[Rfam]
RNA sequence: AAUUAUAGUCCCAGGCUUCAUAGCGCUUUGAAGUCUAGUCCGGUCCAUUCUGUAUAGUGCUUGAGUGGAUUAGAGCCAAGGAUAUUAAUUCUUGGCUUGUAAGGGCAACACACCUGGAUGCGGGGAACUCUCGCUAGGCUCUUGGUACCAAGGCAUUGGUAGUAACACUCCAUGCUGUAGUUCAAAAUAAAGCGAUUGGACUGGUAAUAAUCCAAGAGAUAGAGACAAUCCGCAGCUGACUUGGCUCCCUGCAUUUUUUUAAAAAUUAAUAAACUUGCAUAGCUGGGCGGUUCAACGCUCGCUAAGGUGUGGGUCUGUUGUAAUUGAGAACAGGUCUAAGGUACGGGCUACUCCCUUCCGAGAGGUUGCCAUCACCUACCGGCUGCACCAGCUGAGAAGUGGUGGGGUCAAGUGGAACUAAUCCACUUGGCUGGUAGAAAGGAACUGGCUUGUGGCAGCCAAGCGUUCAUAGCGACGUUGCUUUUUGAUCCUUCGAUGUCGGCUCUUCCUAUCAUACCGAAGCAGAAUUCGGUAAGCGUUGGAUUGUUCACCCACUAAUAGGGAACGUGAGCUGGGUUUAGACCGUCGUGAGACAGGUUA
Numbered sequence: 001a002a003u004u005a006u007a008g009u010c011c012c013a014g015g016c017u018u019c020a021u022a023g024c025g026c027u028u029u030g031a032a033g034u035c036u037a038g039u040c041c042g043g044u045c046c047a048u049u050c051u052g053u054a055u056a057g058u059g060c061u062u063g064a065g066u067g068g069a070u071u072a073g074a075g076c077c078a079a080g081g082a083u084a085u086u087a088a089u090u091c092u093u094g095g096c097u098u099g100u101a102a103g104g105g106c107a108a109c110a111c112a113c114c115u116g117g118a119u120g121c122g123g124g125g126a127a128c129u130c131u132c133g134c135u136a137g138g139c140u141c142u143u144g145g146u147a148c149c150a151a152g153g154c155a156u157u158g159g160u161a162g163u164a165a166c167a168c169u170c171c172a173u174g175c176u177g178u179a180g181u182u183c184a185a186a187a188u189a190a191a192g193c194g195a196u197u198g199g200a201c202u203g204g205u206a207a208u209a210a211u212c213c214a215a216g217a218g219a220u221a222g223a224g225a226c227a228a229u230c231c232g233c234a235g236c237u238g239a240c241u242u243g244g245c246u247c248c249c250u251g252c253a254u255u256u257u258u259u260u261a262a263a264a265a266u267u268a269a270u271a272a273a274c275u276u277g278c279a280u281a282g283c284u285g286g287g288c289g290g291u292u293c294a295a296c297g298c299u300c301g302c303u304a305a306g307g308u309g310u311g312g313g314u315c316u317g318u319u320g321u322a323a324u325u326g327a328g329a330a331c332a333g334g335u336c337u338a339a340g341g342u343a344c345g346g347g348c349u350a351c352u353c354c355c356u357u358c359c360g361a362g363a364g365g366u367u368g369c370c371a372u373c374a375c376c377u378a379c380c381g382g383c384u385g386c387a388c389c390a391g392c393u394g395a396g397a398a399g400u401g402g403u404g405g406g407g408u409c410a411a412g413u414g415g416a417a418c419u420a421a422u423c424c425a426c427u428u429g430g431c432u433g434g435u436a437g438a439a440a441g442g443a444a445c446u447g448g449c450u451u452g453u454g455g456c457a458g459c460c461a462a463g464c465g466u467u468c469a470u471a472g473c474g475a476c477g478u479u480g481c482u483u484u485u486u487g488a489u490c491c492u493u494c495g496a497u498g499u500c501g502g503c504u505c506u507u508c509c510u511a512u513c514a515u516a517c518c519g520a521a522g523c524a525g526a527a528u529u530c531g532g533u534a535a536g537c538g539u540u541g542g543a544u545u546g547u548u549c550a551c552c553c554a555c556u557a558a559u560a561g562g563g564a565a566c567g568u569g570a571g572c573u574g575g576g577u578u579u580a581g582a583c584c585g586u587c588g589u590g591a592g593a594c595a596g597g598u599u600a
Base pairs, nucleotide, nucleotide: 001489003487005486007482008481009480011477015473016472500575501573502572503571504570505567506564507563508562509561510560513538516533517532518531519530520529521528540554541553542552544550581599582598583597584596585594586593587592
Dot-bracket structure: (.(.(.(((.(...((.......................................................................................................................................................................................................................................................................................................................................................................................................................................................................))...)..)))...)).)..........(((((((((((..(..((((((......))))))....).(((.(.....).))).....)))))..)..)))).).....(((((((....))).)))).
The family of this 600-nucleotide part of an RNA from Rhizoctonia solani is "Eukaryotic large subunit ribosomal RNA". The family's consensus secondary structure is taken from published work.